[Rfam]
RNA sequence: CGGUAGCUGGACCAGACCGGGCAUCUUGCCGAACCUAGCAUUCCACAACCCACCGCGGG
Numbered sequence: 001c002g003g004u005a006g007c008u009g010g011a012c013c014a015g016a017c018c019g020g021g022c023a024u025c026u027u028g029c030c031g032a033a034c035c036u037a038g039c040a041u042u043c044c045a046c047a048a049c050c051c052a053c054c055g056c057g058g059g
Base pairs, nucleotide, nucleotide: 001019002018003017004016006039007038008037009036010035020030021029022028023027
The family of this 59-nucleotide RNA from Thauera sp. 27 is "DUF3085 RNA".